[Rfam]
Nucleotides: 103
Base pairs, nucleotide, nucleotide: 003101004100005099006098007097008096013043014042015041016040017039021032022031023030026078027077028076029075044070045069046068047067049066050065051062052061053060054059074095079092080091081090082089083088
Number, partner (000 for none) and nucleotide at each position: 001000c002000u003101g004100u005099u006098a007097u008096c009000a010000c011000g012000a013043a014042a015041g016040g017039c018000c019000g020000a021032g022031g023030g024000a025000c026078u027077a028076g029075a030023c031022c032021c033000g034000g035000u036000g037000a038000a039017g040016c041015c042014u043013u044070a045069g046068c047067a048000a049066c050065c051062c052061u053060u054059u055000a056000a057000c058000u059054a060053a061052a062051g063000a064000a065050g066049g067047u068046g069045c070044u071000a072000c073000a074095u075029u076028c077027u078026a079092c080091u081090u082089u083088g084000a085000u086000u087000u088083c089082a090081a091080a092079g093000a094000c095074a096008g097007a098006u099005a100004a101003c102000c103000c